[Rfam]
RNA sequence: UCUUUGAGGACACCCCACCAUCACAAACUUUUCCAGCCCGGCGCGUUUGCCGGGCUUUU
Numbered sequence: 001u002c003u004u005u006g007a008g009g010a011c012a013c014c015c016c017a018c019c020a021u022c023a024c025a026a027a028c029u030u031u032u033c034c035a036g037c038c039c040g041g042c043g044c045g046u047u048u049g050c051c052g053g054g055c056u057u058u059u
Stems, first nucleotide, its partner, number of pairs: 035056008
RNA: Caulobacter sRNA CC0196